Record summary
Shown here is a 101-nucleotide sequence from Marivivens sp. JLT3646, a member of the family "SAM-I/IV (S-adenosyl methionine) riboswitch aptamer". The family is grouped with related families in Rfam's "SAM clan". Rfam links the family to the GO terms regulation of gene expression and S-adenosylmethionine metabolic process. Taxonomically the source falls in Marivivens (Bacteria, Pseudomonadati, Alphaproteobacteria, Paracoccaceae).
[Rfam]
RNA sequence: UCUCAUCAUCAAGAGCUGGGCUUAUGCCCACACCAACCUGCGAACUCGGCAAGGUGGUUUCCAUGAAGGGAUGUGGCCUGUGGGCAAAAACGAGCAAAUCC
Numbered sequence: 001u002c003u004c005a006u007c008a009u010c011a012a013g014a015g016c017u018g019g020g021c022u023u024a025u026g027c028c029c030a031c032a033c034c035a036a037c038c039u040g041c042g043a044a045c046u047c048g049g050c051a052a053g054g055u056g057g058u059u060u061c062c063a064u065g066a067a068g069g070g071a072u073g074u075g076g077c078c079u080g081u082g083g084g085c086a087a088a089a090a091c092g093a094g095c096a097a098a099u100c101c
Base pairs, nucleotide, nucleotide: 007073008072009071010070015031017030018029019028020027021026032058033057034056037054038053039052040050041049047094076085077084078083